[Rfam]
RNA sequence: UCGCGCGGAACGCUGAAUCCUGCCGCCGCAAGAGGUUCCGUACGAGCUCGCCGGCAGGGGCGGGGGACCCACGUUUGCGGUCACCGGUGACGGUGACCUUGGGGUUAAGCCGGGCGGUCGUCGGAUCCGACGCCCAACCGGCCGGGUGUAUCUCCCAUCCGAACCCGACAGCUGACCCCGUAGGCGUUUUGGAGAGGCAAC
Dot-bracket structure: ..........((((...((((((((..........................))))))))((((((....((............................))(((.....((((........................))))..((((.........))))...))).........)))))).))))...............
This 201-nucleotide RNA from Pengzhenrongella sicca belongs to the Rfam family "c-di-AMP riboswitch aptamer (ydaO/yuaA leader)". NCBI's taxonomy places the organism under Bacteria, Bacillati, Actinomycetota, Actinomycetes, Pengzhenrongella. Gene Ontology terms of the family: cyclic-di-AMP binding and regulation of gene expression.